[Rfam]
RNA sequence: UCUUUCAGUGUUGAAACAUUCUCUACUGAACCAAGCUCCAAAACAAGUUCACUGGGGUUUGUUUCACUAUUGCAAGAA
Numbered sequence: 001u002c003u004u005u006c007a008g009u010g011u012u013g014a015a016a017c018a019u020u021c022u023c024u025a026c027u028g029a030a031c032c033a034a035g036c037u038c039c040a041a042a043a044c045a046a047g048u049u050c051a052c053u054g055g056g057g058u059u060u061g062u063u064u065c066a067c068u069a070u071u072g073c074a075a076g077a078a
Base pairs, nucleotide, nucleotide: 003076004075005074006072007071008070009069010068012066013065014064015063016062017061018060021057022056023055024054025053027051028050029049030048031047
RNA: mir-653 microRNA precursor family
Organism: Rattus norvegicus